Source information:
A member of the RNA family "Flavo-1 RNA" from Flavobacterium psychrophilum, 80 nucleotides long. The sequence is in the family's curated seed alignment. The family's RNA type in Rfam is small RNA.
RNA sequence: UUUUAGCCCAGAUAAGAGUGGAAAUCCUUUUAUUUUUUCCUUCAAAAAAUAAAAGAUUGAAACGUAUAGCUGGAAUUGCU
Numbered sequence: 001u002u003u004u005a006g007c008c009c010a011g012a013u014a015a016g017a018g019u020g021g022a023a024a025u026c027c028u029u030u031u032a033u034u035u036u037u038u039c040c041u042u043c044a045a046a047a048a049a050u051a052a053a054a055g056a057u058u059g060a061a062a063c064g065u066a067u068a069g070c071u072g073g074a075a076u077u078g079c080u
Stems, first nucleotide, its partner, number of pairs: 009072003013068002018063002023058004029053010